[Rfam]
RNA sequence: GGGUGUCGUUACCGCAUGGUGCGGUAAGGCAGGUUCAUAGCGUUGGUCGGGCCGCCACG
Numbered sequence: 001g002g003g004u005g006u007c008g009u010u011a012c013c014g015c016a017u018g019g020u021g022c023g024g025u026a027a028g029g030c031a032g033g034u035u036c037a038u039a040g041c042g043u044u045g046g047u048c049g050g051g052c053c054g055c056c057a058c059g
Stems, first nucleotide, its partner, number of pairs: 005030003009027005041059003045056003